[Rfam]
RNA: Fluoride riboswitch aptamer (crcB RNA motif)
Organism: Williamsia sterculiae
RNA sequence: UCAGUCUCUGGCGAUGGAUCUCGCCGGACCUUGCUGAUCUGAGCUGAGGUCGAACCGCCCUCUCGGCUGAUAGUUCCUACUCGUCG
Numbered sequence: 001u002c003a004g005u006c007u008c009u010g011g012c013g014a015u016g017g018a019u020c021u022c023g024c025c026g027g028a029c030c031u032u033g034c035u036g037a038u039c040u041g042a043g044c045u046g047a048g049g050u051c052g053a054a055c056c057g058c059c060c061u062c063u064c065g066g067c068u069g070a071u072a073g074u075u076c077c078u079a080c081u082c083g084u085c086g
Stems, first nucleotide, its partner, number of pairs: 010025004016077003020073002057067003